[Rfam]
RNA sequence: UCAGUAUAAAGCCAAACCUGUUGCGAGGCAGGGACGGAAAGCCACGGAUCUCAAUGAGAACGCCGGGUUGCCUGG
Numbered sequence: 001u002c003a004g005u006a007u008a009a010a011g012c013c014a015a016a017c018c019u020g021u022u023g024c025g026a027g028g029c030a031g032g033g034a035c036g037g038a039a040a041g042c043c044a045c046g047g048a049u050c051u052c053a054a055u056g057a058g059a060a061c062g063c064c065g066g067g068u069u070g071c072c073u074g075g
Stems, first nucleotide, its partner, number of pairs: 012037002017032006040069004045065003049059002
RNA: c-di-GMP-I riboswitch aptamer
Organism: Desulfovibrio ferrophilus